[Rfam]
RNA sequence: UAGGACACCCACGGGAGCCCGGACGACCGGGCUGAGAGGGAGGCUGGCGGCCUCCGACCGUACGCACCUGAUCCGGGUCAUGCCGGCGAAGGGAGGAGUCGCACACUCAUG
Numbered sequence: 001u002a003g004g005a006c007a008c009c010c011a012c013g014g015g016a017g018c019c020c021g022g023a024c025g026a027c028c029g030g031g032c033u034g035a036g037a038g039g040g041a042g043g044c045u046g047g048c049g050g051c052c053u054c055c056g057a058c059c060g061u062a063c064g065c066a067c068c069u070g071a072u073c074c075g076g077g078u079c080a081u082g083c084c085g086g087c088g089a090a091g092g093g094a095g096g097a098g099u100c101g102c103a104c105a106c107u108c109a110u111g
Stems, first nucleotide, its partner, number of pairs: 009096002011061004017032005039055007067092003073086004
RNA: TPP riboswitch aptamer (THI element)
Organism: Streptomyces hoynatensis